[Rfam]
RNA sequence: CACCGAGUCCGAGGUUCCGGGCCUGACCGGAACCGGGUGCGAAAGGGA
Numbered sequence: 001c002a003c004c005g006a007g008u009c010c011g012a013g014g015u016u017c018c019g020g021g022c023c024u025g026a027c028c029g030g031a032a033c034c035g036g037g038u039g040c041g042a043a044a045g046g047g048a
Base pairs, nucleotide, nucleotide: 013034014033015032016031017030018029019028020027